Rfam assigns this 208-nucleotide RNA from Erwinia sorbitola to the family "GcvB RNA". The source organism's lineage runs through Bacteria, Pseudomonadati, Gammaproteobacteria, Enterobacterales and Erwinia. Rfam's curators write: The gcvB gene encodes a small untranslated RNA involved in expression of the dipeptide and oligopeptide transport systems in Escherichia coli. Included several unknown homologues in alignment (Bateman A pers obs). It base-pairs with SorC. This interaction triggers the degradation of GcvB by RNase E, alleviating the GcvB-mediated mRNA repression of other amino acid-related transport and metabolic genes. A search with the family's covariance model found it, with a score of 136 bits.
[Rfam]
RNA sequence: ACUUCCUGAGCCGGAACGAAAAGUGUCUUAAAAUUUGGUGUUAACUCGCGGAAUUUUGAGGGGCUUUUGGCUUGUGUCGUGAUGUUGUGUUUGCAAUUGACCUGACGAUUUUCAGGUCUGGUAGCCUGGCUACCUUUUAUUCCUGUAGAUUUACCCUGUCUGUCCAUAUUGAUUUUUAAUAGCACCGCCAAAGGCGGUGCUUUUUUUU
Numbered sequence: 001a002c003u004u005c006c007u008g009a010g011c012c013g014g015a016a017c018g019a020a021a022a023g024u025g026u027c028u029u030a031a032a033a034u035u036u037g038g039u040g041u042u043a044a045c046u047c048g049c050g051g052a053a054u055u056u057u058g059a060g061g062g063g064c065u066u067u068u069g070g071c072u073u074g075u076g077u078c079g080u081g082a083u084g085u086u087g088u089g090u091u092u093g094c095a096a097u098u099g100a101c102c103u104g105a106c107g108a109u110u111u112u113c114a115g116g117u118c119u120g121g122u123a124g125c126c127u128g129g130c131u132a133c134c135u136u137u138u139a140u141u142c143c144u145g146u147a148g149a150u151u152u153a154c155c156c157u158g159u160c161u162g163u164c165c166a167u168a169u170u171g172a173u174u175u176u177u178a179a180u181a182g183c184a185c186c187g188c189c190a191a192a193g194g195c196g197g198u199g200c201u202u203u204u205u206u207u208u
Stems, first nucleotide, its partner, number of pairs: 009072004015068002021066004026061011099118007120134006149177001181201008